The family of this 74-nucleotide sequence is "skipping-rope RNA".
[Rfam]
RNA sequence: GAACCUUGAGGACGGAACGGGCAGCCGUCGCCCCUUAUGGGUAGGAGAUGCGGGAAGGUCACCCGCCGGGUUUC
Number, nucleotide and partner (000 for none) at each position: 001g073002a072003a071004c070005c069006u068007u000008g067009a000010g000011g029012a028013c027014g026015g025016a000017a000018c000019g000020g060021g059022c058023a000024g000025c015026c014027g013028u012029c011030g000031c045032c041033c040034c039035u000036u000037a000038u000039g034040g033041g032042u000043a000044g000045g031046a000047g000048a000049u000050g066051c065052g064053g063054g000055a000056a000057g000058g022059u021060c020061a000062c000063c053064c052065g051066c050067c008068g006069g005070g004071u003072u002073u001074c000
The family's RNA type in Rfam is small RNA. Pairs were carried over by alignment from the consensus structure, which is taken from published work.